[Rfam]
RNA sequence: CUCUUAUCGAGAGCAGGCUGAGGGACUGGCCCUAUGACGCCCGGCAACCGGCAGCGAAAAGUUUCCCACUGCAUCGGUGCUAAUUCCUGCAGAACGAUAUGUUCUGACAGAUGAGAG
Numbered sequence: 001c002u003c004u005u006a007u008c009g010a011g012a013g014c015a016g017g018c019u020g021a022g023g024g025a026c027u028g029g030c031c032c033u034a035u036g037a038c039g040c041c042c043g044g045c046a047a048c049c050g051g052c053a054g055c056g057a058a059a060a061g062u063u064u065c066c067c068a069c070u071g072c073a074u075c076g077g078u079g080c081u082a083a084u085u086c087c088u089g090c091a092g093a094a095c096g097a098u099a100u101g102u103u104c105u106g107a108c109a110g111a112u113g114a115g116a117g
Stems, first nucleotide, its partner, number of pairs: 001117008013042001016041003022032003026089001028087002043081004048077002051072003085109001090106006

Shown here is a 117-nucleotide RNA from Thermoanaerobacteraceae bacterium SP2, a member of the family "SAM riboswitch aptamer (S box leader)". About the family: The SAM riboswitch is found upstream of a number of genes which code for proteins involved in methionine or cysteine biosynthesis in Gram-positive bacteria. A search with the family's covariance model found it, with a score of 87 bits. The source organism's lineage runs through Bacteria, Bacillati, Clostridia, Thermoanaerobacterales and Thermoanaerobacteraceae.